[Rfam]
Ascomycota telomerase RNA: a 524-nucleotide part of an RNA from Drepanopeziza brunnea.
RNA sequence: AUCCAAACAGAGAGAAACUUCGUCGGCUACGUCGGGGUAGCUGAGCGUCCUUGGCCUGGUCUACUGCAUGUCCGGUCAACUGCUGGUUUCGAGUCCAGCUGAAACGAGAUGUCGAUUCAAUCACUUCGGCGAGGUACGGUCGAGGGAUCAGAUGAAUGGGUGGUGGGGUGCGAAAGACUAGAUGUUGUGGUAAGGGUGCCUUGUUUUGCUCAUACCGCAUCCACAGACUUGGUGCUUUCAGUCCAAGAGGAAAGGAUAUCGCUCAGCGUCCAGAAUGGGACCCAUCUCGAGUUGGUGUCAAAGUCUAGUGCUUGUCUGUUCUGGGAAGCGCGGGGUAGUCUGCCUGACUUCUUGGGUGGGAGGUACUUCUUGGGUGGUGCUGUGGUGGGUUGUGUGCAUUCUUGGAUGCUGGGUGUUACUUUUUGCUGGCCUAUCGUUGAAUUCUGGACAGGCCUGGUGGUGGGCAGUCCUGGGUUGUCCCUCGUCUGUUGAUACAGGCUUGGGGCAGCCCCUCCUUUUUGGGG
Numbered sequence: 001a002u003c004c005a006a007a008c009a010g011a012g013a014g015a016a017a018c019u020u021c022g023u024c025g026g027c028u029a030c031g032u033c034g035g036g037g038u039a040g041c042u043g044a045g046c047g048u049c050c051u052u053g054g055c056c057u058g059g060u061c062u063a064c065u066g067c068a069u070g071u072c073c074g075g076u077c078a079a080c081u082g083c084u085g086g087u088u089u090c091g092a093g094u095c096c097a098g099c100u101g102a103a104a105c106g107a108g109a110u111g112u113c114g115a116u117u118c119a120a121u122c123a124c125u126u127c128g129g130c131g132a133g134g135u136a137c138g139g140u141c142g143a144g145g146g147a148u149c150a151g152a153u154g155a156a157u158g159g160g161u162g163g164u165g166g167g168g169u170g171c172g173a174a175a176g177a178c179u180a181g182a183u184g185u186u187g188u189g190g191u192a193a194g195g196g197u198g199c200c201u202u203g204u205u206u207u208g209c210u211c212a213u214a215c216c217g218c219a220u221c222c223a224c225a226g227a228c229u230u231g232g233u234g235c236u237u238u239c240a241g242u243c244c245a246a247g248a249g250g251a252a253a254g255g256a257u258a259u260c261g262c263u264c265a266g267c268g269u270c271c272a273g274a275a276u277g278g279g280a281c282c283c284a285u286c287u288c289g290a291g292u293u294g295g296u297g298u299c300a301a302a303g304u305c306u307a308g309u310g311c312u313u314g315u316c317u318g319u320u321c322u323g324g325g326a327a328g329c330g331c332g333g334g335g336u337a338g339u340c341u342g343c344c345u346g347a348c349u350u351c352u353u354g355g356g357u358g359g360g361a362g363g364u365a366c367u368u369c370u371u372g373g374g375u376g377g378u379g380c381u382g383u384g385g386u387g388g389g390u391u392g393u394g395u396g397c398a399u400u401c402u403u404g405g406a407u408g409c410u411g412g413g414u415g416u417u418a419c420u421u422u423u424u425g426c427u428g429g430c431c432u433a434u435c436g437u438u439g440a441a442u443u444c445u446g447g448a449c450a451g452g453c454c455u456g457g458u459g460g461u462g463g464g465c466a467g468u469c470c471u472g473g474g475u476u477g478u479c480c481c482u483c484g485u486c487u488g489u490u491g492a493u494a495c496a497g498g499c500u501u502g503g504g505g506c507a508g509c510c511c512c513u514c515c516u517u518u519u520u521g522g523g524g
Base pairs, nucleotide, nucleotide: 279299280298281297282295283294284293301313302312303311304310
Taxonomically the source falls in Drepanopeziza brunnea f. sp. 'multigermtubi' (Eukaryota, Opisthokonta, leotiomyceta, Leotiomycetes).